This 83-nucleotide RNA from Cucumis melo belongs to the Rfam family "Plastid-psbM 3UTR RNA".

RNA sequence: GAUCCGAUAGUAUGGUAGAAAAGAAAUAUAUGAAUCCUUCUACCAUACUAUCUAUUAUUGUUAUUGAAGUGUAUAAUAUAAAU
Number, nucleotide and partner (000 for none) at each position: 001g000002a000003u000004c000005c000006g052007a051008u050009a049010g048011u047012a046013u045014g044015g043016u042017a041018g040019a039020a038021a000022a000023g036024a035025a000026a000027u000028a000029u000030a000031u000032g000033a000034a000035u024036c023037c000038u020039u019040c018041u017042a016043c015044c014045a013046u012047a011048c010049u009050a008051u007052c006053u000054a000055u000056u000057a000058u000059u000060g000061u000062u000063a000064u000065u000066g000067a000068a000069g000070u000071g000072u000073a000074u000075a000076a000077u000078a000079u000080a000081a000082a000083u000
The base pairs follow the family's consensus structure, which was predicted with LocARNA.
Lineage of the source: Eukaryota > Magnoliopsida > Cucurbitaceae > Benincaseae > Cucumis.
It is annotated as a cis-regulatory element.